This 101-nucleotide sequence from Clostridium frigidicarnis belongs to the Rfam family "azaaromatic riboswitch aptamer (yjdF RNA)".
RNA sequence: UAUUUGAGAGAUAAAAACACAGUUUCUGUUGGUAGUCAGAACCUAUAGCGUUAUAGCAGUAACCUGCCCUCCUGGGGUUGUCCGUUCUCUAGAAAAUUUUU
Numbered sequence: 001u002a003u004u005u006g007a008g009a010g011a012u013a014a015a016a017a018c019a020c021a022g023u024u025u026c027u028g029u030u031g032g033u034a035g036u037c038a039g040a041a042c043c044u045a046u047a048g049c050g051u052u053a054u055a056g057c058a059g060u061a062a063c064c065u066g067c068c069c070u071c072c073u074g075g076g077g078u079u080g081u082c083c084g085u086u087c088u089c090u091a092g093a094a095a096a097u098u099u100u101u
Stems, first nucleotide, its partner, number of pairs: 004093002007090005022042002025040004043056005066078004
The source organism's lineage runs through Bacteria, Clostridia, Eubacteriales, Clostridiaceae and Clostridium.
The match comes from Rfam's covariance-model search (83 bits).